[Rfam]
RNA sequence: CCGUCGCGCUGGCCGGUGCUAAAGGGUUCUUGCCCUGACAGCAUCUGUCAGUAGCCGUUGGGCAGGACCCUUUAGCACCGGUUCGUGUUACAAA
Number, nucleotide and partner (000 for none) at each position: 001c000002c000003g091004u090005c000006g088007c087008g086009c085010u000011g083012g082013c081014c080015g079016g078017u077018g076019c075020u074021a073022a072023a071024g070025g069026g068027u067028u000029c066030u065031u000032g000033c000034c061035c060036u000037g000038a058039c057040a000041g000042c000043a000044u000045c051046u050047g000048u000049c000050a046051g045052u000053a000054g000055c000056c000057g039058u038059u000060g035061g034062g000063c000064a000065g030066g029067a027068c026069c025070c024071u023072u022073u021074a020075g019076c018077a017078c016079c015080g014081g013082u012083u011084c000085g009086u008087g007088u006089u000090a004091c003092a000093a000094a000
A member of the RNA family "MIR5387 microRNA precursor family" from Sorghum bicolor, 94 nucleotides long. Gene Ontology terms of the family: RISC complex and miRNA-mediated post-transcriptional gene silencing. Pairs were carried over by alignment from the consensus structure, which was predicted with RNAalifold. The match comes from Rfam's covariance-model search (82 bits). The family has 2 seed sequences and 1,029 matches in Rfam 15.1.